[Rfam]
Description: The family of this 425-nucleotide sequence from Lunatimonas lonarensis is "Bacterial RNase P class A". NCBI's taxonomy places the organism under Bacteria, Bacteroidota, Cytophagales, Cyclobacteriaceae, Lunatimonas. By type it is a ribozyme.
RNA sequence: CGUGCAAGCUGGCUUGUCGCUGCGGAUCGAUUCCGAUCGAGACGGGGAGGAAAGUCCGGGCAACAUAGAGCGCCAUACUUCCUAACGGGAAGGGGCGAUGCUGGUGACGGCAUCGCAACAGAAAGUACCACAGAAAAUAUACCGCCCCCUGCCUGGCAAGGGGUAAGGGUGAAAUGGUGGGGUAAGAGCCCACCGCUCCGUUGGUGACAGGGGAGGCACGGUAAACCUUAUGGGUUGAAAGAUCAAAUAGGUUCCGCCGGGAGACUUUGUCUCACAGAGAGUUGCUCGCUUUCAUGCGGAACGGGUAGAUCGAUGGAUCCCGACUGCGAAGUCGGGACUAGAUAAAUGACAAGCUCCCUUGGCAGCAGGUUUAGACCUUUAGCCUGCCAGGGUGACAGAACCCGGCUUACAGGCUUGCACGUUUU
Numbered sequence: 001c002g003u004g005c006a007a008g009c010u011g012g013c014u015u016g017u018c019g020c021u022g023c024g025g026a027u028c029g030a031u032u033c034c035g036a037u038c039g040a041g042a043c044g045g046g047g048a049g050g051a052a053a054g055u056c057c058g059g060g061c062a063a064c065a066u067a068g069a070g071c072g073c074c075a076u077a078c079u080u081c082c083u084a085a086c087g088g089g090a091a092g093g094g095g096c097g098a099u100g101c102u103g104g105u106g107a108c109g110g111c112a113u114c115g116c117a118a119c120a121g122a123a124a125g126u127a128c129c130a131c132a133g134a135a136a137a138u139a140u141a142c143c144g145c146c147c148c149c150u151g152c153c154u155g156g157c158a159a160g161g162g163g164u165a166a167g168g169g170u171g172a173a174a175u176g177g178u179g180g181g182g183u184a185a186g187a188g189c190c191c192a193c194c195g196c197u198c199c200g201u202u203g204g205u206g207a208c209a210g211g212g213g214a215g216g217c218a219c220g221g222u223a224a225a226c227c228u229u230a231u232g233g234g235u236u237g238a239a240a241g242a243u244c245a246a247a248u249a250g251g252u253u254c255c256g257c258c259g260g261g262a263g264a265c266u267u268u269g270u271c272u273c274a275c276a277g278a279g280a281g282u283u284g285c286u287c288g289c290u291u292u293c294a295u296g297c298g299g300a301a302c303g304g305g306u307a308g309a310u311c312g313a314u315g316g317a318u319c320c321c322g323a324c325u326g327c328g329a330a331g332u333c334g335g336g337a338c339u340a341g342a343u344a345a346a347u348g349a350c351a352a353g354c355u356c357c358c359u360u361g362g363c364a365g366c367a368g369g370u371u372u373a374g375a376c377c378u379u380u381a382g383c384c385u386g387c388c389a390g391g392g393u394g395a396c397a398g399a400a401c402c403c404g405g406c407u408u409a410c411a412g413g414c415u416u417g418c419a420c421g422u423u424u425u
Base pairs, nucleotide, nucleotide: 001421002420003419004418005417006416007415008414009413010412011410012354013353014352015351016350017349018348020047021046023044024043027040028039029038030037052408053407054406056405057404058403059402060401061237062236063235064234068287069286070285071284073233074232075231076230077229078092079091080090081089082088093119095116096115097114098113099112100111101110102109103108120228121227125226126225127222128221129220142168143167144164145163146162147161148160150158151157152156176194177193178192179191180190181189195217196215197214198213199212201210202209203208241311242310243309244308251302252301253300254299255298256297278292279291280290281289282288318337319336320335321334322333323332324331325330